[Rfam]
Enterobacterial sRNA STnc240: a 77-nucleotide RNA from Kluyvera genomosp. 3. Rfam classes the family as a small RNA. Taxonomically the source falls in Kluyvera (Bacteria, Pseudomonadota, Gammaproteobacteria, Enterobacteriaceae).

RNA sequence: ACCGUUUGGGGCAAAAUAUGUCGAAUGUAAAAAAUUGAGAUUAACCGACGUGCUUGCCGCGUCGGUUAUUUUUUUUA
Numbered sequence: 001a002c003c004g005u006u007u008g009g010g011g012c013a014a015a016a017u018a019u020g021u022c023g024a025a026u027g028u029a030a031a032a033a034a035u036u037g038a039g040a041u042u043a044a045c046c047g048a049c050g051u052g053c054u055u056g057c058c059g060c061g062u063c064g065g066u067u068a069u070u071u072u073u074u075u076u077a
Stems, first nucleotide, its partner, number of pairs: 011021002042068009